Small nucleolar RNA Z102/R77: an 86-nucleotide sequence from Acer yangbiense. Pairs were carried over by alignment from the consensus structure, which was predicted with PFOLD. The family's RNA type in Rfam is C/D-box small nucleolar RNA.
RNA sequence: GAAUGAAAUGAUGAUUAUAAGAUUCCCUAUUGGUUUGAUAGCCGAGAUGAUGGCAUCGACCUUGUAUUAGCUCUAUCUGAUCAUUC
Numbered sequence: 001g002a003a004u005g006a007a008a009u010g011a012u013g014a015u016u017a018u019a020a021g022a023u024u025c026c027c028u029a030u031u032g033g034u035u036u037g038a039u040a041g042c043c044g045a046g047a048u049g050a051u052g053g054c055a056u057c058g059a060c061c062u063u064g065u066a067u068u069a070g071c072u073c074u075a076u077c078u079g080a081u082c083a084u085u086c
Base pairs, nucleotide, nucleotide: 002085003084004083005082037057041054042053043052

The family is grouped with related families in Rfam's "SNORD44 clan". The literature on the family includes a 2003 paper in Nucleic Acids Res by Chen et al., "The high diversity of snoRNAs in plants: identification and comparative study of 120 snoRNA genes from Oryza sativa".